[Rfam]
RNA sequence: AUUGAUAAGUGGUAAACCUGCCGAAAGGCAGCGACACAAAGCUACAGGGCCUAAAGAUAUUUAUUCUAUGGUUGCCAGCUGCCAAU
Numbered sequence: 001a002u003u004g005a006u007a008a009g010u011g012g013u014a015a016a017c018c019u020g021c022c023g024a025a026a027g028g029c030a031g032c033g034a035c036a037c038a039a040a041g042c043u044a045c046a047g048g049g050c051c052u053a054a055a056g057a058u059a060u061u062u063a064u065u066c067u068a069u070g071g072u073u074g075c076c077a078g079c080u081g082c083c084a085a086u
Stems, first nucleotide, its partner, number of pairs: 012037002018031005040080004047076002049072003056066002
Dot-bracket structure: ...........((....(((((....)))))....))..((((...(((((....((.......))...)))..))))))......
Notes
The record is an 86-nucleotide RNA sequence from Sedimentibacter saalensis, which matches "c-di-GMP-I riboswitch aptamer" in Rfam. Its family is annotated with cyclic-di-GMP binding in the Gene Ontology. The organism belongs to Sedimentibacter, within Bacteria. It scores 67 bits against the family's covariance model.